[Rfam]
U4 spliceosomal RNA: a 136-nucleotide sequence from Aotus nancymaae. Pairs were carried over by alignment from the consensus structure, which is taken from published work. U4 small nuclear RNA (U4 snRNA) is a component of the major U2-dependent spliceosome. The organism belongs to Aotus, within Eukaryota. It is annotated as a spliceosomal small nuclear RNA.

RNA sequence: AGCUUUGUGCAGUGGCAGUAUUGUAGCCAAUGAGGUUUAUCCGAGGCUCGAUUGUUGCUAAUUGAAGGAAAAAAAUAUAUAAAGGAAAGAAAGGACUUUGGUUUAGUUUGGUAGAUCCUUAAACCCCAAAUGUGGG
Numbered sequence: 001a002g003c004u005u006u007g008u009g010c011a012g013u014g015g016c017a018g019u020a021u022u023g024u025a026g027c028c029a030a031u032g033a034g035g036u037u038u039a040u041c042c043g044a045g046g047c048u049c050g051a052u053u054g055u056u057g058c059u060a061a062u063u064g065a066a067g068g069a070a071a072a073a074a075a076u077a078u079a080u081a082a083a084g085g086a087a088a089g090a091a092a093g094g095a096c097u098u099u100g101g102u103u104u105a106g107u108u109u110g111g112u113a114g115a116u117c118c119u120u121a122a123a124c125c126c127c128a129a130a131u132g133u134g135g136g
Stems, first nucleotide, its partner, number of pairs: 020052004026047003034042002086112001089108002093104004125136004